[Rfam]
RNA: ALIL pseudoknot
Organism: Thalassotalea piscium
RNA sequence: CGCUUUUUUCGCCCAAGCGGAGCUCGACCGCAAACAGAAGUAAUAGUGGAUUUUAUUGAUGCUUGCAGAGAGCAUUACGGUGUCGAGUCAAUUUGCAAGGAAUUGCCGAUUGCACCA
Numbered sequence: 001c002g003c004u005u006u007u008u009u010c011g012c013c014c015a016a017g018c019g020g021a022g023c024u025c026g027a028c029c030g031c032a033a034a035c036a037g038a039a040g041u042a043a044u045a046g047u048g049g050a051u052u053u054u055a056u057u058g059a060u061g062c063u064u065g066c067a068g069a070g071a072g073c074a075u076u077a078c079g080g081u082g083u084c085g086a087g088u089c090a091a092u093u094u095g096c097a098a099g100g101a102a103u104u105g106c107c108g109a110u111u112g113c114a115c116c117a
Stems, first nucleotide, its partner, number of pairs: 017031004079116004089112002092109002095106004